RNA sequence: GGACGACAAAGGCAAACCGGACGAAAGUCCGGGACGCAAAGCCGACGGGCCUAAGGAGGAUUCUCUAAGGCGGCCGGGUUGCCGAA
Dot-bracket structure: ...........((...((((((....))))))...))..((((..((((((....(((....)))...)))..)))))))......
Rfam assigns this 86-nucleotide RNA sequence from Paenibacillus oceani to the family "c-di-GMP-I riboswitch aptamer". Lineage of the source: Bacteria > Bacillati > Bacillota > Paenibacillaceae > Paenibacillus. A search with the family's covariance model found it, with a score of 80 bits.